[Rfam]
RNA sequence: GAAGAGAAGAAGGAGGAGGAGGAGGAGGAGGAGGAGGAGAAGGCCCCUGGCCUUCUCCUCCUCCUCCUCCUCCUCCUUCUUCUUG
Numbered sequence: 001g002a003a004g005a006g007a008a009g010a011a012g013g014a015g016g017a018g019g020a021g022g023a024g025g026a027g028g029a030g031g032a033g034g035a036g037g038a039g040a041a042g043g044c045c046c047c048u049g050g051c052c053u054u055c056u057c058c059u060c061c062u063c064c065u066c067c068u069c070c071u072c073c074u075c076c077u078u079c080u081u082c083u084u085g
Base pairs, nucleotide, nucleotide: 004081005080006079007078008077009076013075014074016072018070019069020068021067022066023065024064025063026062027061029059037057038056039055040054041053042052043051045050
RNA: mir-877 microRNA precursor family
Organism: Hordeum vulgare